Annotation:
U5 spliceosomal RNA: a 119-nucleotide sequence from Artemisia annua. Rfam 15.1 lists 28,527 matches to the family in 2,489 species. The family's consensus secondary structure is taken from published work. Rfam classes the family as a spliceosomal small nuclear RNA. Lineage of the source: Eukaryota > Magnoliopsida > eudicotyledons > Asteraceae > Artemisia. It scores 94 bits against the family's covariance model.

[Rfam]
RNA sequence: AGCCAUGCAAUAAGCACAAAGCGAACUAUUCUUUCGCCUUUUACUAAAGAAUACCGUGCGCUUGUUGUAUUAAAUGGCAUACGCCAAUUUUUGGAGAGUUUCUUCUCAAAAGGAAGGAC
Numbered sequence: 001a002g003c004c005a006u007g008c009a010a011u012a013a014g015c016a017c018a019a020a021g022c023g024a025a026c027u028a029u030u031c032u033u034u035c036g037c038c039u040u041u042u043a044c045u046a047a048a049g050a051a052u053a054c055c056g057u058g059c060g061c062u063u064g065u066u067g068u069a070u071u072a073a074a075u076g077g078c079a080u081a082c083g084c085c086a087a088u089u090u091u092u093g094g095a096g097a098g099u100u101u102c103u104u105c106u107c108a109a110a111a112g113g114a115a116g117g118a119c
Base pairs, nucleotide, nucleotide: 003077004076005075006074008067009066010065011064012063013062014061015060017058018057027053028052029051030050031049032048033047034046100118101117102116103115104114105113